[Rfam]
RNA: Trypanosomatid snoRNA TB9Cs4H1
RNA sequence: CGAGGUCUUUGUGUACCCCGUGCGGCUCCACCCAUGACGCACAUAUGGGGAAUGGUAAAGACCGAG
Numbered sequence: 001c002g003a004g005g006u007c008u009u010u011g012u013g014u015a016c017c018c019c020g021u022g023c024g025g026c027u028c029c030a031c032c033c034a035u036g037a038c039g040c041a042c043a044u045a046u047g048g049g050g051a052a053u054g055g056u057a058a059a060g061a062c063c064g065a066g
Stems, first nucleotide, its partner, number of pairs: 004063006016050005023039002026036001